The record is a 191-nucleotide RNA from Jejuibacter calystegiae, which matches "Lysine riboswitch aptamer" in Rfam. Rfam's curators write: Riboswitches are metabolite binding domains within certain messenger RNAs that serve as precision sensors for their corresponding targets. Allosteric rearrangement of mRNA structure is mediated by ligand binding, and this results in modulation of gene expression. This family includes riboswitches that sense lysine in a number of genes involved in lysine metabolism, including lysC. The family's consensus secondary structure is taken from published work.
[Rfam]
RNA sequence: AGCGCCAGAAGAGGUGCGUCGUCCAGGUAAUGUAUCCGAGGAGCCGAUCCGAGGAAGAUACAGGAGGGGGUGCGACGCCGAGGGAGCCCACGUCCGGCAGCGCGGGUUUUCGACUACAGGGGCUGAAUCCCCUGGGUUGUCACCCCGAAGCACCCACAGGUUGCUUCGCAAGGUGGAGGGCUUCUGGGUGA
Dot-bracket structure: .....((((((....(((((((.(......((((((....................)))))).......).)))))))...((((((((.(((......))).))))))))((((.((((((......)))))))))).(((((...........................)))))....)))))).....